[Rfam]
The record is an 89-nucleotide RNA sequence from Anas platyrhynchos, which matches "Small nucleolar RNA SNORD70" in Rfam. Taxonomically the source falls in Anas (Eukaryota, Metazoa, Gnathostomata, Amniota). The pairing is the family consensus, mapped onto this sequence. The match comes from Rfam's covariance-model search (92 bits).
RNA sequence: UAGUCUGUUGUCAAUGAUGGAUUCUUGUUGGAACUGAAUGUAAGUGAUACAAGUCUACAUUUCGUCACUACCACUGAGACAACAGACGG
Numbered sequence: 001u002a003g004u005c006u007g008u009u010g011u012c013a014a015u016g017a018u019g020g021a022u023u024c025u026u027g028u029u030g031g032a033a034c035u036g037a038a039u040g041u042a043a044g045u046g047a048u049a050c051a052a053g054u055c056u057a058c059a060u061u062u063c064g065u066c067a068c069u070a071c072c073a074c075u076g077a078g079a080c081a082a083c084a085g086a087c088g089g
Base pairs, nucleotide, nucleotide: 001089003087004086005085006084007083008082009081010080011079012078

Overview
The literature on the family includes a 2001 paper in EMBO J by Huttenhofer et al., "RNomics: an experimental approach that identifies 201 candidates for novel, small, non-messenger RNAs in mouse".